[Rfam]
RNA sequence: GGGUGCUUGGCCGCAAUGGGCGGCUGGGCAGGUGAACAGCGAAGGUCGGGCCGCCUCG
Numbered sequence: 001g002g003g004u005g006c007u008u009g010g011c012c013g014c015a016a017u018g019g020g021c022g023g024c025u026g027g028g029c030a031g032g033u034g035a036a037c038a039g040c041g042a043a044g045g046u047c048g049g050g051c052c053g054c055c056u057c058g
Stems, first nucleotide, its partner, number of pairs: 005029010040058003044055003
This 58-nucleotide RNA from Paucibacter sp. KCTC 42545 belongs to the Rfam family "nhaA-I RNA". Acidobacteria, Alphaproteobacteria, Betaproteobacteria and Gammaproteobacteria, Verrucomicrobia, cand. division NC10.